[Rfam]
The family of this 72-nucleotide RNA sequence from Dictyostelium discoideum is "tRNA". Gene Ontology term of the family: triplet codon-amino acid adaptor activity. Rfam classes the family as a transfer RNA. The family's consensus secondary structure is taken from published work.
RNA sequence: GGCUCCUUAGCAUAGUGGUAUUGCGCUUCCCUAGUAAGGAAGAGGUCAUGAGUUCGAUCCUCAUAGGAGCCU
Number, nucleotide and partner (000 for none) at each position: 001g071002g070003c069004u068005c067006c066007u065008u000009a000010g024011c023012a022013u000014a000015g000016u000017g000018g000019u000020a000021u000022u012023g011024c010025g000026c042027u041028u040029c039030c038031c000032u000033a000034g000035u000036a000037a000038g030039g029040a028041a027042g026043a000044g000045g000046u000047c000048a064049u063050g062051a061052g060053u000054u000055c000056g000057a000058u000059c000060c052061u051062c050063a049064u048065a007066g006067g005068a004069g003070c002071c001072u000